[Rfam]
RNA sequence: UGCCCGCUGAUGACACAUCCUUGCUCCCCGUGCCUGUUGGCUGUGGGUGACAUCCUGGCUGCCCUGGGCCAAGCCAGUGGGCUAAGCCUGGGGGCUGAGGGCA
Numbered sequence: 001u002g003c004c005c006g007c008u009g010a011u012g013a014c015a016c017a018u019c020c021u022u023g024c025u026c027c028c029c030g031u032g033c034c035u036g037u038u039g040g041c042u043g044u045g046g047g048u049g050a051c052a053u054c055c056u057g058g059c060u061g062c063c064c065u066g067g068g069c070c071a072a073g074c075c076a077g078u079g080g081g082c083u084a085a086g087c088c089u090g091g092g093g094g095c096u097g098a099g100g101g102c103a
Stems, first nucleotide, its partner, number of pairs: 001103005

Rfam assigns this 103-nucleotide sequence from Sorex araneus to the family "Small nucleolar RNA SNORD23".
The family has 15 seed sequences and 153 matches in Rfam 15.1.
Rfam's curators put it in the seed alignment.
Lineage of the source: Eukaryota > Vertebrata > Laurasiatheria > Eulipotyphla > Sorex.
On this family, see Galardi et al., Mol Cell Biol 2002: "Purified box C/D snoRNPs are able to reproduce site-specific 2'-O-methylation of target RNA in vitro".